[Rfam]
RNA: Plastid-psbN 5UTR RNA
Organism: Artemisia annua
RNA sequence: UGUGACCCCCAUCAAAUGGGUCGUUCCCCACCCUGGAGCUAUUUUACCAUAUUCCGAAUUC
Numbered sequence: 001u002g003u004g005a006c007c008c009c010c011a012u013c014a015a016a017u018g019g020g021u022c023g024u025u026c027c028c029c030a031c032c033c034u035g036g037a038g039c040u041a042u043u044u045u046a047c048c049a050u051a052u053u054c055c056g057a058a059u060u061c
Stems, first nucleotide, its partner, number of pairs: 018044004023039005